[Rfam]
RNA sequence: UGAGGCCGAUGAUGAUCUACAAAUGAUUUUUGCCUACAUUGCAUGAUUAUCUGGACUAAGAUAGUGAUAUAUCUGAAUUUUCUGAGGCCUUU
Numbered sequence: 001u002g003a004g005g006c007c008g009a010u011g012a013u014g015a016u017c018u019a020c021a022a023a024u025g026a027u028u029u030u031u032g033c034c035u036a037c038a039u040u041g042c043a044u045g046a047u048u049a050u051c052u053g054g055a056c057u058a059a060g061a062u063a064g065u066g067a068u069a070u071a072u073c074u075g076a077a078u079u080u081u082c083u084g085a086g087g088c089c090u091u092u
Stems, first nucleotide, its partner, number of pairs: 002091001004089004